Annotation:
azaaromatic riboswitch aptamer (yjdF RNA): a 111-nucleotide RNA from Enterorhabdus sp. P55. The family's consensus secondary structure is taken from published work.

RNA sequence: UCCCCCGAAGGUAAAAACACGACCCCGUCGGGUAGUCGGGGUGCGGCCGCCCUCCUGCGACGUGCCGCCAGUAACCUGCCUCCUUGGUUGUCCCUCCUUCAGGUUCGUCAA
Numbered sequence: 001u002c003c004c005c006c007g008a009a010g011g012u013a014a015a016a017a018c019a020c021g022a023c024c025c026c027g028u029c030g031g032g033u034a035g036u037c038g039g040g041g042u043g044c045g046g047c048c049g050c051c052c053u054c055c056u057g058c059g060a061c062g063u064g065c066c067g068c069c070a071g072u073a074a075c076c077u078g079c080c081u082c083c084u085u086g087g088u089u090g091u092c093c094c095u096c097c098u099u100c101a102g103g104u105u106c107g108u109c110a111a
Stems, first nucleotide, its partner, number of pairs: 004103002007100005022042006043068005078088003